[Rfam]
RNA sequence: CUGGCUUCCGUGCUGGGGAGCGGACCCCGGGGCGGGCCAGCACUCUGGCCUCUCUUGGGGCCCUCACUGUCUCUCCGGGCCCG
Numbered sequence: 001c002u003g004g005c006u007u008c009c010g011u012g013c014u015g016g017g018g019a020g021c022g023g024a025c026c027c028c029g030g031g032g033c034g035g036g037c038c039a040g041c042a043c044u045c046u047g048g049c050c051u052c053u054c055u056u057g058g059g060g061c062c063c064u065c066a067c068u069g070u071c072u073c074u075c076c077g078g079g080c081c082c083g
Stems, first nucleotide, its partner, number of pairs: 003081003007078002010075001012073001015070001017068002020065001022063002025060007034051005
RNA: mir-1343 microRNA precursor family
Organism: Phocoena sinus